[Rfam]
RNA sequence: AUACGUGCUCCGGGGUCGGUGAGAGUCCGAACCGGCGGUGAUAGUCCGCGACCCGCUUCGGCGGUUGAGCUGGUGGAACUCCAGCACCGACGGUUAUGGGUUGAUCGUGCAGAUCGGCUCGAGUCCGGAUGGAAGGCAGCACGACG
Numbered sequence: 001a002u003a004c005g006u007g008c009u010c011c012g013g014g015g016u017c018g019g020u021g022a023g024a025g026u027c028c029g030a031a032c033c034g035g036c037g038g039u040g041a042u043a044g045u046c047c048g049c050g051a052c053c054c055g056c057u058u059c060g061g062c063g064g065u066u067g068a069g070c071u072g073g074u075g076g077a078a079c080u081c082c083a084g085c086a087c088c089g090a091c092g093g094u095u096a097u098g099g100g101u102u103g104a105u106c107g108u109g110c111a112g113a114u115c116g117g118c119u120c121g122a123g124u125c126c127g128g129a130u131g132g133a134a135g136g137c138a139g140c141a142c143g144a145c146g
Stems, first nucleotide, its partner, number of pairs: 004143006010135001017029003033089002035049004044087002053064002069085005091127003

This 146-nucleotide sequence from Labedella populi belongs to the Rfam family "FMN riboswitch aptamer (RFN element)". Gene Ontology term of the family: FMN binding. Rfam's curators write: The RFN element is a highly conserved domain that is found frequently in the 5'-untranslated regions of prokaryotic mRNAs that encode for flavin mononucleotide (FMN) biosynthesis and transport proteins. Lineage of the source: Bacteria > Actinomycetota > Actinomycetes > Microbacteriaceae > Labedella.